[Rfam]
RNA sequence: CCUCCUUUCUUGGCAUACUCGCUGUUUUCCCGUACACGUGUGUGUAUGUGAUGGAGGAAUAUUAAAAUGUCCAGUGCUAUGUCUUCGGUGCCAGAAAGUCAACCAUUUUCUAGUUCUAUCCUCAAUCGCUGGCACAUUC
Numbered sequence: 001c002c003u004c005c006u007u008u009c010u011u012g013g014c015a016u017a018c019u020c021g022c023u024g025u026u027u028u029c030c031c032g033u034a035c036a037c038g039u040g041u042g043u044g045u046a047u048g049u050g051a052u053g054g055a056g057g058a059a060u061a062u063u064a065a066a067a068u069g070u071c072c073a074g075u076g077c078u079a080u081g082u083c084u085u086c087g088g089u090g091c092c093a094g095a096a097a098g099u100c101a102a103c104c105a106u107u108u109u110c111u112a113g114u115u116c117u118a119u120c121c122u123c124a125a126u127c128g129c130u131g132g133c134a135c136a137u138u139c
Stems, first nucleotide, its partner, number of pairs: 001057005014044005021037001023036003072131005091113001093111005

Small nucleolar RNA SNORA57: a 139-nucleotide RNA from Dicentrarchus labrax.
Rfam 15.1 lists 1,736 matches to the family in 530 species.
U99 belongs to the H/ACA class of snoRNAs which are thought to guide the sites of modification of uridines to pseudouridines, the target for this family is unknown.
Rfam links the family to the GO terms RNA processing and nucleolus.